[Rfam]
Background:
mir-2060 microRNA precursor family: a 94-nucleotide sequence from Branchiostoma belcheri.
RNA sequence: GUCUUCCUGUGUGUGGAUGAUGUUCAGUACCAAGGACAGGUGUGUUUUCCUGUUUAUAGAUGGUGUUCAGCACCAAGGACAGGUGUGUUAACCU
Numbered sequence: 001g002u003c004u005u006c007c008u009g010u011g012u013g014u015g016g017a018u019g020a021u022g023u024u025c026a027g028u029a030c031c032a033a034g035g036a037c038a039g040g041u042g043u044g045u046u047u048u049c050c051u052g053u054u055u056a057u058a059g060a061u062g063g064u065g066u067u068c069a070g071c072a073c074c075a076a077g078g079a080c081a082g083g084u085g086u087g088u089u090a091a092c093c094u
Base pairs, nucleotide, nucleotide: 004085006083007082008081009080010079018075019074021072022071023070024069026067027066028065029064030063031062032061034055036053037052038051039050040049042047

Source information: Rfam links the family to the GO terms miRNA-mediated post-transcriptional gene silencing and RISC complex. Pairs were carried over by alignment from the consensus structure, which was predicted with RNAalifold. It scores 90 bits against the family's covariance model.